Rfam assigns this 76-nucleotide RNA sequence from Carlito syrichta to the family "mir-320 microRNA precursor family". It scores 66 bits against the family's covariance model.

RNA sequence: AAAGUCAAACCCCUUCUCUUCCUGGUUCUUCCCAGAGUCUGGAAAAGCUGGGUUGAGAGAACAAUAAUAAUAAUAA
Numbered sequence: 001a002a003a004g005u006c007a008a009a010c011c012c013c014u015u016c017u018c019u020u021c022c023u024g025g026u027u028c029u030u031c032c033c034a035g036a037g038u039c040u041g042g043a044a045a046a047g048c049u050g051g052g053u054u055g056a057g058a059g060a061a062c063a064a065u066a067a068u069a070a071u072a073a074u075a076a
Base pairs, nucleotide, nucleotide: 014059015058016057017056018055021052022051023050024049025048029044030043031042032041